[Rfam]
RNA sequence: GCCGGUCCUCGGUAGUGGCCUCCGGGCGAGAUCUCCCGGGUGCUUCGAUCGAUGGCCGGC
Numbered sequence: 001g002c003c004g005g006u007c008c009u010c011g012g013u014a015g016u017g018g019c020c021u022c023c024g025g026g027c028g029a030g031a032u033c034u035c036c037c038g039g040g041u042g043c044u045u046c047g048a049u050c051g052a053u054g055g056c057c058g059g060c
Stems, first nucleotide, its partner, number of pairs: 001060007009052005017044003021040006028033001

The record is a 60-nucleotide sequence from Streptomyces lonarensis, which matches "Actino-pnp RNA" in Rfam. It is annotated as a cis-regulatory element. The family's consensus secondary structure is taken from published work. The organism belongs to Streptomyces, within Bacteria.